[Rfam]
RNA sequence: GCGAUGCAAAAAGCGCGUGCAGGGCCUUACUUCAGAAAUGGAGCAAAGACCCGUAGUACAAUUUUUGGAUAGUCCUGGGGGUUUGCCUCCGGGGCG
Numbered sequence: 001g002c003g004a005u006g007c008a009a010a011a012a013g014c015g016c017g018u019g020c021a022g023g024g025c026c027u028u029a030c031u032u033c034a035g036a037a038a039u040g041g042a043g044c045a046a047a048g049a050c051c052c053g054u055a056g057u058a059c060a061a062u063u064u065u066u067g068g069a070u071a072g073u074c075c076u077g078g079g080g081g082u083u084u085g086c087c088u089c090c091g092g093g094g095c096g
Stems, first nucleotide, its partner, number of pairs: 022052003026048003072095009